[Rfam]
RNA: Iron response element II
Organism: Betta splendens
RNA sequence: AAGCUAUCGGGAGCAGAGCCUUCCAUAGUUA
Numbered sequence: 001a002a003g004c005u006a007u008c009g010g011g012a013g014c015a016g017a018g019c020c021u022u023c024c025a026u027a028g029u030u031a
Stems, first nucleotide, its partner, number of pairs: 002030006009024005014018001